RNA sequence: GGGGGGCGUGUAUAUCUGGUGAUUACCACAGACUUCAAAUCUGAUGAGUGGCUAAGUGUUUAGUCAUUGGGGAGUUCGAUUCUCUCGCCUUCUC
Numbered sequence: 001g002g003g004g005g006g007c008g009u010g011u012a013u014a015u016c017u018g019g020u021g022a023u024u025a026c027c028a029c030a031g032a033c034u035u036c037a038a039a040u041c042u043g044a045u046g047a048g049u050g051g052c053u054a055a056g057u058g059u060u061u062a063g064u065c066a067u068u069g070g071g072g073a074g075u076u077c078g079a080u081u082c083u084c085u086c087g088c089c090u091u092c093u094c
Base pairs, nucleotide, nucleotide: 001093002092003091004090005089006088007087008086010026011025012024014023015022016021029043030042031041032040047068048067049066050065051064052063053062071085072084073083074082

This 94-nucleotide sequence from Helicobacter sp. MIT 14-3879 belongs to the Rfam family "Selenocysteine transfer RNA".